[Rfam]
RNA sequence: AUACUUACCUGGCAGGGGAAAUGCCAUGAUUGGAAGGAGGUUUUCUCAGGGCAAGGCUCAUGUAUUGCUCUCCCGAUGUGCUGACCCCUGCGAUUUUCUCCAAUGUGGGAAACUCGAUUGCGUAAUUUAUGAUGGUCGGAGACUGGGAAGGUGGAAAGAACCUGGAUCUCCGC
Numbered sequence: 001a002u003a004c005u006u007a008c009c010u011g012g013c014a015g016g017g018g019a020a021a022u023g024c025c026a027u028g029a030u031u032g033g034a035a036g037g038a039g040g041u042u043u044u045c046u047c048a049g050g051g052c053a054a055g056g057c058u059c060a061u062g063u064a065u066u067g068c069u070c071u072c073c074c075g076a077u078g079u080g081c082u083g084a085c086c087c088c089u090g091c092g093a094u095u096u097u098c099u100c101c102a103a104u105g106u107g108g109g110a111a112a113c114u115c116g117a118u119u120g121c122g123u124a125a126u127u128u129a130u131g132a133u134g135g136u137c138g139g140a141g142a143c144u145g146g147g148a149a150g151g152u153g154g155a156a157a158g159a160a161c162c163u164g165g166a167u168c169u170c171c172g173c
Base pairs, nucleotide, nucleotide: 012121013120014119015118016047017046018045019044020043021042023041024040025039027037048089049088050087051086055082056081057080059078060077061076062074091116092115093114094112095111096110098108099107137172138171139170140169141168142167
Dot-bracket structure: ...........((((((((((.(((.(.........).)))))))))((((...(((.((((...........).))).)))...)))).((((((.((.......)).))).))).))))...............((((((........................)))))).
The record is a 173-nucleotide sequence from Gorilla gorilla, which matches "U1 spliceosomal RNA" in Rfam. Rfam classes the family as a spliceosomal small nuclear RNA.